Annotation
The record is a 72-nucleotide RNA sequence from Petromyzon marinus, which matches "mir-153 microRNA precursor family" in Rfam. The base pairs follow the family's consensus structure, which was predicted with RNAalifold. NCBI's taxonomy places the organism under Eukaryota, Eumetazoa, Vertebrata, Cyclostomata, Petromyzon.
[Rfam]
RNA sequence: GCCGAUGUCAUUUUUGUGAUUUGCAGCUGGUUUCAUUAGUAAAGUUGCAUAGUCACAAAAGUGAUCAUUGGA
Numbered sequence: 001g002c003c004g005a006u007g008u009c010a011u012u013u014u015u016g017u018g019a020u021u022u023g024c025a026g027c028u029g030g031u032u033u034c035a036u037u038a039g040u041a042a043a044g045u046u047g048c049a050u051a052g053u054c055a056c057a058a059a060a061g062u063g064a065u066c067a068u069u070g071g072a
Base pairs, nucleotide, nucleotide: 002071003070004069005068006067007066008064009063010062011061012060013059014058015057016056017055018054019053020052022049023048024047025046026045027044028043

Rfam's curators put it in the seed alignment. Rfam links the family to the GO terms miRNA-mediated post-transcriptional gene silencing and RISC complex.